Shown here is an 82-nucleotide sequence from Ceuthmochares aereus, a member of the family "Small nucleolar RNA SNORD111". A reference for the family is Galardi et al. (2002), "Purified box C/D snoRNPs are able to reproduce site-specific 2'-O-methylation of target RNA in vitro", Mol Cell Biol. Pairs were carried over by alignment from the consensus structure, which was predicted with RNAalifold. The source organism's lineage runs through Eukaryota, Eumetazoa, Amniota, Archelosauria and Ceuthmochares.
[Rfam]
RNA sequence: UGGCCUGAAAUGAUGUUAUGAAUUCAUGUCUCUUCACUGAGAUGUAUUAUGGAGACAACUGGAUGCAUUUCUGAUCAGGCCA
Numbered sequence: 001u002g003g004c005c006u007g008a009a010a011u012g013a014u015g016u017u018a019u020g021a022a023u024u025c026a027u028g029u030c031u032c033u034u035c036a037c038u039g040a041g042a043u044g045u046a047u048u049a050u051g052g053a054g055a056c057a058a059c060u061g062g063a064u065g066c067a068u069u070u071c072u073g074a075u076c077a078g079g080c081c082a
Stems, first nucleotide, its partner, number of pairs: 001082005